Shown here is an 82-nucleotide RNA sequence from Myotis myotis, a member of the family "mir-9243 microRNA precursor family".
RNA sequence: CCAUGCACGAAUUUCGUGCACUGGGCCUCUAGUAUAGAAUAUAUUAUACUAGAGGCCCAGUGCACAAAAUUCGUGCAUGGGA
Numbered sequence: 001c002c003a004u005g006c007a008c009g010a011a012u013u014u015c016g017u018g019c020a021c022u023g024g025g026c027c028u029c030u031a032g033u034a035u036a037g038a039a040u041a042u043a044u045u046a047u048a049c050u051a052g053a054g055g056c057c058c059a060g061u062g063c064a065c066a067a068a069a070u071u072c073g074u075g076c077a078u079g080g081g082a
Stems, first nucleotide, its partner, number of pairs: 001080002004077008013068002017064019

Its family is annotated with miRNA-mediated post-transcriptional gene silencing and RISC complex in the Gene Ontology.